[Rfam]
Rfam assigns this 275-nucleotide sequence from Chinchilla lanigera to the family "Mason-Pfizer monkey virus packaging signal". By type it is a cis-regulatory element. Gene Ontology term of the family: viral genome packaging. The match comes from Rfam's covariance-model search (91 bits). From the family's description: This family represents a group of sequences that are related to the Mason-Pfizer monkey virus (MPMV) packaging signal.
RNA sequence: UGGCGCCACAGCGUGGGGCUCCAGCACGGGGGAUCUAGUGACGGACGCUGUUCAAGAGGCCGGCAAAAAUAAAAGAGAAAGAAAGAGGAUGAGAUCGCGUGGGAACCUGCUAUGCUUUCUAGACCUCGGUAAGUGAACAGAACUUAUGGGACAAGAAAUGAGUCAGCAUAAAGUGUUUGCUGAACGCUUAGGAAAAGCCUUAAAGGCACGAGGAGUAAAGGUUAAAAUUAAGCAAUUGUGUCAGUAGUUCGAUUUCAUUAAGCAAAUCUGUCCUU
Numbered sequence: 001u002g003g004c005g006c007c008a009c010a011g012c013g014u015g016g017g018g019c020u021c022c023a024g025c026a027c028g029g030g031g032g033a034u035c036u037a038g039u040g041a042c043g044g045a046c047g048c049u050g051u052u053c054a055a056g057a058g059g060c061c062g063g064c065a066a067a068a069a070u071a072a073a074a075g076a077g078a079a080a081g082a083a084a085g086a087g088g089a090u091g092a093g094a095u096c097g098c099g100u101g102g103g104a105a106c107c108u109g110c111u112a113u114g115c116u117u118u119c120u121a122g123a124c125c126u127c128g129g130u131a132a133g134u135g136a137a138c139a140g141a142a143c144u145u146a147u148g149g150g151a152c153a154a155g156a157a158a159u160g161a162g163u164c165a166g167c168a169u170a171a172a173g174u175g176u177u178u179g180c181u182g183a184a185c186g187c188u189u190a191g192g193a194a195a196a197g198c199c200u201u202a203a204a205g206g207c208a209c210g211a212g213g214a215g216u217a218a219a220g221g222u223u224a225a226a227a228u229u230a231a232g233c234a235a236u237u238g239u240g241u242c243a244g245u246a247g248u249u250c251g252a253u254u255u256c257a258u259u260a261a262g263c264a265a266a267u268c269u270g271u272c273c274u275u
Stems, first nucleotide, its partner, number of pairs: 006032002009030001013027003037049003085127004093119002098114005134153002138150001141147001159202003162198002209251004215245002219237002222234001260275003264271001